Background:
The family of this 120-nucleotide RNA sequence from Durio zibethinus is "Small nucleolar RNA Z278". It scores 57 bits against the family's covariance model. Pairs were carried over by alignment from the consensus structure, which was predicted with PFOLD. Rfam 15.1 lists 1,130 matches to the family in 214 species.
RNA sequence: GCCAAAGAUGAUUGGAAUCCACUUUGUAUGAGGUGCAGUGGAGCCAAGACCCUGUUUAACAGGGAGAACCUGCUUGGUAGAAGCUGCAAUUCAAUGGAUAUUAAUGGAUUCAACUGAGGC
Numbered sequence: 001g002c003c004a005a006a007g008a009u010g011a012u013u014g015g016a017a018u019c020c021a022c023u024u025u026g027u028a029u030g031a032g033g034u035g036c037a038g039u040g041g042a043g044c045c046a047a048g049a050c051c052c053u054g055u056u057u058a059a060c061a062g063g064g065a066g067a068a069c070c071u072g073c074u075u076g077g078u079a080g081a082a083g084c085u086g087c088a089a090u091u092c093a094a095u096g097g098a099u100a101u102u103a104a105u106g107g108a109u110u111c112a113a114c115u116g117a118g119g120c
Stems, first nucleotide, its partner, number of pairs: 001120003050064005